RNA sequence: CUCCAUGGUUUUCUUGGACCUGUCAGCAGUGGCAGCCUUCCUUUCUAAAUAUUUAAAUACAUAUUUACUGGCAAAGCUGUCAUCAUCUAACUGGUAUCAGAUUCUUGCAUAAAUACCAUUC
Dot-bracket structure: .(..(((........(((.(((((......)))))..))).........)))..)......(..(...((((((..(((..((((......))))..)))....)))).))...)..)...
Small nucleolar RNA SNORA24: a 121-nucleotide sequence from Nannospalax galili.
About the family: ACA24 is a member of the H/ACA class of snoRNA that guide the sites of modification of uridines to pseudouridines.
By type it is an H/ACA-box small nucleolar RNA.